[Rfam]
RNA sequence: UUCACGAAACGGCAAACCAAUUGAAAAAUUGGGACGCAAAGCUACAGGGCCUUUAAACUGGCAGCCAGCUGACGAA
Numbered sequence: 001u002u003c004a005c006g007a008a009a010c011g012g013c014a015a016a017c018c019a020a021u022u023g024a025a026a027a028a029u030u031g032g033g034a035c036g037c038a039a040a041g042c043u044a045c046a047g048g049g050c051c052u053u054u055a056a057a058c059u060g061g062c063a064g065c066c067a068g069c070u071g072a073c074g075a076a
Stems, first nucleotide, its partner, number of pairs: 012037002017032006040070004047066002049062003
RNA: c-di-GMP-I riboswitch aptamer